This 71-nucleotide sequence from Pseudovirgaria hyperparasitica belongs to the Rfam family "bZIP non canonical Hac1/Xbp1 intron". The family's consensus secondary structure was predicted with RNAfold.
[Rfam]
RNA sequence: UCCUGAGCCCGAUUUGACACAACAUUCUGCUGCAAUGUUGUGUGACCUGCAGUGUCAGUCGGAGCUCAGCA
Numbered sequence: 001u002c003c004u005g006a007g008c009c010c011g012a013u014u015u016g017a018c019a020c021a022a023c024a025u026u027c028u029g030c031u032g033c034a035a036u037g038u039u040g041u042g043u044g045a046c047c048u049g050c051a052g053u054g055u056c057a058g059u060c061g062g063a064g065c066u067c068a069g070c071a
Base pairs, nucleotide, nucleotide: 001071003069004068005067006066007065010061011060012059013058014057021039022038023037024036025035026034044056045055046054
Rfam describes the family as follows. bZIP intron RNA is a non-canonical intron that was first reported in HAC1 gene in yeast and XBP1 gene in Metazoa. By type it is a small RNA. The match comes from Rfam's covariance-model search (52 bits). On this family, see Hooks and Griffiths-Jones, RNA Biol 2011: "Conserved RNA structures in the non-canonical Hac1/Xbp1 intron".